[Rfam]
RNA sequence: GCGCGGGUAACCCGGGAUCUGAACCCGCCAGUAGGACCCUAUUGUAGAUAACACUAAUUUUCUUUUUUCUUUUUUAUUUAUUUAGAUAUUAUUAUUUAUUUAUUUAUUUAUUUAUUGAAUGAGUAAGAACUGGUAUAAACUACCUCAAGUUACCACACUACACUCAUUUUUAACAGCACUUU
Numbered sequence: 001g002c003g004c005g006g007g008u009a010a011c012c013c014g015g016g017a018u019c020u021g022a023a024c025c026c027g028c029c030a031g032u033a034g035g036a037c038c039c040u041a042u043u044g045u046a047g048a049u050a051a052c053a054c055u056a057a058u059u060u061u062c063u064u065u066u067u068u069c070u071u072u073u074u075u076a077u078u079u080a081u082u083u084a085g086a087u088a089u090u091a092u093u094a095u096u097u098a099u100u101u102a103u104u105u106a107u108u109u110a111u112u113u114a115u116u117g118a119a120u121g122a123g124u125a126a127g128a129a130c131u132g133g134u135a136u137a138a139a140c141u142a143c144c145u146c147a148a149g150u151u152a153c154c155a156c157a158c159u160a161c162a163c164u165c166a167u168u169u170u171u172a173a174c175a176g177c178a179c180u181u182u
Stems, first nucleotide, its partner, number of pairs: 003028004013021002030116006040106002044103008055094001057093001072088001074086002117169008126159002131155005139150002

The family of this 182-nucleotide sequence from Orthopestivirus suis is "Pestivirus 3' UTR SLIV, SLIII and SLII classical swine fever virus".
Taxonomically the source falls in Orthopestivirus suis (Viruses, Riboviria, Kitrinoviricota, Amarillovirales).
The pairing is the family consensus, mapped onto this sequence.